Rfam assigns this 39-nucleotide RNA from Pteropus vampyrus to the family "MAT2A 3'UTR stem loop D". Rfam 15.1 lists 422 matches to the family in 262 species. The base pairs follow the family's consensus structure, which is taken from published work. The source organism's lineage runs through Eukaryota, Teleostomi, Amniota, Theria and Pteropus. The literature on the family includes a 2011 paper in Genome Res by Parker et al., "New families of human regulatory RNA structures identified by comparative analysis of vertebrate genomes".
[Rfam]
RNA sequence: UCUGGGGUAUGGCCGGAGUACAGAGAAGUCAUCGCCCCG
Dot-bracket structure: ..(((((((((((..............))))).))))))